[Rfam]
RNA sequence: UGUAUACUUCAGGGCAGGGUGUAAUUCCCGAUCGGCGGUAAACCCCGCGAACCAAUUUGGUAGAACUUGUUAAAUUCAAGUGGCGACAGUUAAAGUCUGGAUGGAAGAAGUUUUUU
Numbered sequence: 001u002g003u004a005u006a007c008u009u010c011a012g013g014g015c016a017g018g019g020u021g022u023a024a025u026u027c028c029c030g031a032u033c034g035g036c037g038g039u040a041a042a043c044c045c046c047g048c049g050a051a052c053c054a055a056u057u058u059g060g061u062a063g064a065a066c067u068u069g070u071u072a073a074a075u076u077c078a079a080g081u082g083g084c085g086a087c088a089g090u091u092a093a094a095g096u097c098u099g100g101a102u103g104g105a106a107g108a109a110g111u112u113u114u115u116u
Stems, first nucleotide, its partner, number of pairs: 004113001006111005017029003031096002033085002035048004043083002051061003065081005087099003
Dot-bracket structure: ...(.(((((......(((.......))).[[((((((....[[))))..(((.....)))...(((((.......)))))]])).(((.....]]))).......))))).)...
The family of this 116-nucleotide RNA from Erysipelothrix rhusiopathiae is "FMN riboswitch aptamer (RFN element)".
The organism belongs to Erysipelothrix rhusiopathiae, within Bacteria.
From the family's description: The RFN element is a highly conserved domain that is found frequently in the 5'-untranslated regions of prokaryotic mRNAs that encode for flavin mononucleotide (FMN) biosynthesis and transport proteins.
A search with the family's covariance model found it, with a score of 104 bits.